[Rfam]
RNA sequence: AAUGAAUGAUGACAAUUUGUUUCGGUCCCAGAUGAUAUGGUGAUUAAUGCAUUCCAAAGCUGACAUU
Numbered sequence: 001a002a003u004g005a006a007u008g009a010u011g012a013c014a015a016u017u018u019g020u021u022u023c024g025g026u027c028c029c030a031g032a033u034g035a036u037a038u039g040g041u042g043a044u045u046a047a048u049g050c051a052u053u054c055c056a057a058a059g060c061u062g063a064c065a066u067u
Stems, first nucleotide, its partner, number of pairs: 001067004
The family of this 67-nucleotide RNA sequence from Varanus komodoensis is "Small nucleolar RNA SNORD73". On this family, see Rebane et al., Gene 1998: "A novel snoRNA (U73) is encoded within the introns of the human and mouse ribosomal protein S3a genes". Taxonomically the source falls in Varanus (Eukaryota, Dipnotetrapodomorpha, Toxicofera, Varanidae).